RNA: mir-221 microRNA precursor family
RNA sequence: UGAACCUGGCAUACAAUGUAGAUUUCUGUGUGUCAGUCUACAGCUACAUUGUCUGCUGGGUUUCA
Numbered sequence: 001u002g003a004a005c006c007u008g009g010c011a012u013a014c015a016a017u018g019u020a021g022a023u024u025u026c027u028g029u030g031u032g033u034c035a036g037u038c039u040a041c042a043g044c045u046a047c048a049u050u051g052u053c054u055g056c057u058g059g060g061u062u063u064c065a
Base pairs, nucleotide, nucleotide: 006059007058008057009056010055011054013052014051015050016049017048018047019046020045021044026043027042028041029040